Annotation:
This 83-nucleotide sequence from Paenibacillus antri belongs to the Rfam family "c-di-GMP-I-GGC riboswitch aptamer". The family's consensus secondary structure is taken from published work. Taxonomically the source falls in Paenibacillus (Bacteria, Bacillota, Caryophanales, Paenibacillaceae).

[Rfam]
Nucleotides: 083
Stems, first nucleotide, its partner, number of pairs: 001083001003080002011036002017030005034069001039076004044072003047067003
Number, partner (000 for none) and nucleotide at each position: 001083u002000u003080u004079g005000u006000u007000a008000a009000g010000g011036g012035c013000a014000a015000a016000c017030c018029c019028g020027g021026c022000g023000a024000a025000a026021g027020c028019c029018g030017g031000a032000g033000a034069c035012g036011c037000a038000a039076a040075g041074c042073c043000a044072c045071g046070g047067g048066c049065c050000u051000a052000c053000c054000g055000c056000g057000a058000c059000a060000g061000c062000a063000a064000c065049g066048g067047c068000a069034g070046c071045c072044g073042g074041g075040u076039u077000c078000c079004c080003a081000a082000g083001a